[Rfam]
RNA sequence: GCCGGUUGCUCCUUCACUCGGAUCGUCCGGCACGUUCCUGCCGGUGAAAGGAAGCGCUC
Numbered sequence: 001g002c003c004g005g006u007u008g009c010u011c012c013u014u015c016a017c018u019c020g021g022a023u024c025g026u027c028c029g030g031c032a033c034g035u036u037c038c039u040g041c042c043g044g045u046g047a048a049a050g051g052a053a054g055c056g057c058u059c
Base pairs, nucleotide, nucleotide: 010051011050013048014047015046016045027044028043029042030041031040032039

Shown here is a 59-nucleotide sequence from Micromonospora sp. MW-13, a member of the family "msiK RNA". It scores 51 bits against the family's covariance model.